[Rfam]
RNA sequence: UCCGUACACUAGGGGAGCAACUGCUGAGAGCGGCCAUAAGCCGCGACCCUUCGAACCUGAUCCGGGUAGUGCCGGCGUAGGGAAGUGUGUUUAGAGUCUU
Numbered sequence: 001u002c003c004g005u006a007c008a009c010u011a012g013g014g015g016a017g018c019a020a021c022u023g024c025u026g027a028g029a030g031c032g033g034c035c036a037u038a039a040g041c042c043g044c045g046a047c048c049c050u051u052c053g054a055a056c057c058u059g060a061u062c063c064g065g066g067u068a069g070u071g072c073c074g075g076c077g078u079a080g081g082g083a084a085g086u087g088u089g090u091u092u093a094g095a096g097u098c099u100u
Base pairs, nucleotide, nucleotide: 006088007087008086009085010084011050012049013048014047017024018023031043032042033041034040056081057080058079059078062075063074064073065072
RNA: TPP riboswitch aptamer (THI element)